c-di-AMP riboswitch aptamer (ydaO/yuaA leader): a 147-nucleotide sequence from a Micromonosporaceae bacterium. A search with the family's covariance model found it, with a score of 81 bits.
RNA sequence: CGGCCAGCACCGCCGAGUCGCCAGCGAGUCGGUUCUUGGUGAGCCGGGGAUCCGUGCACCACCGGGGUGAGUCCGCGAGCCAUCGCGGUAGGGCGUCUUCCAGCCCGAACCCGUCAGCUAACCCGGUAGGCGGUCACGGAAGAGGGG
Numbered sequence: 001c002g003g004c005c006a007g008c009a010c011c012g013c014c015g016a017g018u019c020g021c022c023a024g025c026g027a028g029u030c031g032g033u034u035c036u037u038g039g040u041g042a043g044c045c046g047g048g049g050a051u052c053c054g055u056g057c058a059c060c061a062c063c064g065g066g067g068u069g070a071g072u073c074c075g076c077g078a079g080c081c082a083u084c085g086c087g088g089u090a091g092g093g094c095g096u097c098u099u100c101c102a103g104c105c106c107g108a109a110c111c112c113g114u115c116a117g118c119u120a121a122c123c124c125g126g127u128a129g130g131c132g133g134u135c136a137c138g139g140a141a142g143a144g145g146g147g
Base pairs, nucleotide, nucleotide: 011132012131013130014129018042019041020040021039022038023037024036043127044126045125046124047123048122053064054063065112066111067110073088074087075086076085091106092105093104094103